[Rfam]
Bacterial large subunit ribosomal RNA: a 588-nucleotide part of an RNA from Thermanaerovibrio acidaminovorans. Pairs were carried over by alignment from the consensus structure, which is taken from published work. The organism belongs to Thermanaerovibrio acidaminovorans, within Bacteria.
RNA sequence: CCCGUGGUGGGACGGAAAGACCCCGUGGAGCUUUACUGUAGCCUGAUAUUGGGUCUUGGCAAUCUCUGUACAGGAUAGGUGGGAGGCGUAGAAGUCAUGCCGCCAGGUGUGAUGGAGCCGUCGUUGGGAUACCACCCUUAGGUUGCUGGGGUUCUAACCGCUAGAGCUGAACCGCUAAGCGGGACACUGUCAGGUGGGCAGUUUGACUGGGGCGGUCGCCUCCUAAAGAGUAACGGAGGCGCGCGAAGGUCACCUCAUCGCGAAUGGAAAUCGCGAGUUGAGCGCAAGGGUAUAAGGUGGCUUAACUGUGAGAGCGACAGUUCGAGCAGAGACGAAAGUCGGUCCUAGUGAUCCGGUGGUACCGAGUGGAAGGGCCAUCGCUCAUCGGAUAAAAGCUACCCCGGGGAUAACAGGCUGAUCUCCCCCGAGAGUUCCCAUCGACGGGGAGGUUUGGCACCUCGAUGUCGGCUCGUCGCAUCCUGGGGCUGGAGAAGGUCCCAAGGGUUGGUCUGUUCGCCCAUUAAAGCGGUACGUGAGCUGGGUUUAGAACGUCGUGAGACAGUUCGGUCCCUAUCCACCACGGGCGUA
Numbered sequence: 001c002c003c004g005u006g007g008u009g010g011g012a013c014g015g016a017a018a019g020a021c022c023c024c025g026u027g028g029a030g031c032u033u034u035a036c037u038g039u040a041g042c043c044u045g046a047u048a049u050u051g052g053g054u055c056u057u058g059g060c061a062a063u064c065u066c067u068g069u070a071c072a073g074g075a076u077a078g079g080u081g082g083g084a085g086g087c088g089u090a091g092a093a094g095u096c097a098u099g100c101c102g103c104c105a106g107g108u109g110u111g112a113u114g115g116a117g118c119c120g121u122c123g124u125u126g127g128g129a130u131a132c133c134a135c136c137c138u139u140a141g142g143u144u145g146c147u148g149g150g151g152u153u154c155u156a157a158c159c160g161c162u163a164g165a166g167c168u169g170a171a172c173c174g175c176u177a178a179g180c181g182g183g184a185c186a187c188u189g190u191c192a193g194g195u196g197g198g199c200a201g202u203u204u205g206a207c208u209g210g211g212g213c214g215g216u217c218g219c220c221u222c223c224u225a226a227a228g229a230g231u232a233a234c235g236g237a238g239g240c241g242c243g244c245g246a247a248g249g250u251c252a253c254c255u256c257a258u259c260g261c262g263a264a265u266g267g268a269a270a271u272c273g274c275g276a277g278u279u280g281a282g283c284g285c286a287a288g289g290g291u292a293u294a295a296g297g298u299g300g301c302u303u304a305a306c307u308g309u310g311a312g313a314g315c316g317a318c319a320g321u322u323c324g325a326g327c328a329g330a331g332a333c334g335a336a337a338g339u340c341g342g343u344c345c346u347a348g349u350g351a352u353c354c355g356g357u358g359g360u361a362c363c364g365a366g367u368g369g370a371a372g373g374g375c376c377a378u379c380g381c382u383c384a385u386c387g388g389a390u391a392a393a394a395g396c397u398a399c400c401c402c403g404g405g406g407a408u409a410a411c412a413g414g415c416u417g418a419u420c421u422c423c424c425c426c427g428a429g430a431g432u433u434c435c436c437a438u439c440g441a442c443g444g445g446g447a448g449g450u451u452u453g454g455c456a457c458c459u460c461g462a463u464g465u466c467g468g469c470u471c472g473u474c475g476c477a478u479c480c481u482g483g484g485g486c487u488g489g490a491g492a493a494g495g496u497c498c499c500a501a502g503g504g505u506u507g508g509u510c511u512g513u514u515c516g517c518c519c520a521u522u523a524a525a526g527c528g529g530u531a532c533g534u535g536a537g538c539u540g541g542g543u544u545u546a547g548a549a550c551g552u553c554g555u556g557a558g559a560c561a562g563u564u565c566g567g568u569c570c571c572u573a574u575c576c577a578c579c580a581c582g583g584g585c586g587u588a
Base pairs, nucleotide, nucleotide: 001584002583003582004581005580006579007578008577010576011575012574014571015570022405023404024403025402027401028400029397030396031395032394033393035202036201037200038199042194043193044192045191046190047189048188051154052153053152054151055150056149057148058147059146060145061144062143063142064141065140068137078136079135080134081133082132085119086118087117094113095112096111097110098109099108100107101106158182159181160180162179165176166175167174205217206216207215208214218240219239220238221237222236223235241386243343244342249301250300251299252298253297254296255281256280258276259275260274261273262272263271282291283290306329307328308327309326312323313322314321331340332339333338354380355379356378357377358376359375360374362373363372414455415454416453418452419449420448421447422446423445424444425443429439430438466541467539468538469537470536471533472530473529474528475527476526479504480503482499483498484497485496486495487494506520507519508518510516547565548564549563550562551560552559553558